[Rfam]
RNA sequence: UCAGCACCCAAAAACCCAAAGAUUGUGCCACACAAUGGCAUGAUCUUGCCUGGUGUGCUUACAUCAACGUGCCUUGUCGCCUUUUGAAAGCUCAUGUGCUCUUUAAAGUGAAAUCAAGGCCCAACACUU
Numbered sequence: 001u002c003a004g005c006a007c008c009c010a011a012a013a014a015c016c017c018a019a020a021g022a023u024u025g026u027g028c029c030a031c032a033c034a035a036u037g038g039c040a041u042g043a044u045c046u047u048g049c050c051u052g053g054u055g056u057g058c059u060u061a062c063a064u065c066a067a068c069g070u071g072c073c074u075u076g077u078c079g080c081c082u083u084u085u086g087a088a089a090g091c092u093c094a095u096g097u098g099c100u101c102u103u104u105a106a107a108g109u110g111a112a113a114u115c116a117a118g119g120c121c122c123a124a125c126a127c128u129u
Stems, first nucleotide, its partner, number of pairs: 003059005009053001021045010069122001071120005081108004086103002089100003
About this RNA
Rfam assigns this 129-nucleotide RNA from Denticeps clupeoides to the family "Small nucleolar RNA SNORA68". The match comes from Rfam's covariance-model search (71 bits). Taxonomically the source falls in Denticeps (Eukaryota, Eumetazoa, Teleostomi, Actinopterygii). The literature on the family includes a 1997 paper in Genes Dev by Ganot et al., "The family of box ACA small nucleolar RNAs is defined by an evolutionarily conserved secondary structure and ubiquitous sequence elements essential for RNA accumulation". The family's consensus secondary structure was predicted with PFOLD. Its family is annotated with nucleolus and RNA processing in the Gene Ontology. Rfam describes the family as follows. U68 is a member of the H/ACA class of small nucleolar RNAs (snoRNAs) which act as guides in the the modification of uridines to pseudouridines.